Nucleotides: 070
Stems, first nucleotide, its partner, number of pairs: 001068005009057005022052003030045003035041002
Number, partner (000 for none) and nucleotide at each position: 001068u002067c003066c004065u005064u006000g007000g008000a009057g010056a011055g012054u013053u014000a015000u016000a017000c018000c019000a020000a021000a022052c023051u024050a025000g026000a027000g028000u029000a030045g031044a032043a033000u034000a035041a036040g037000g038000a039000a040036u041035u042000a043032u044031u045030c046000a047000a048000a049000a050024u051023a052022g053013a054012g055011c056010u057009u058000u059000a060000a061000g062000a063000a064005g065004a066003g067002g068001a069000a070000a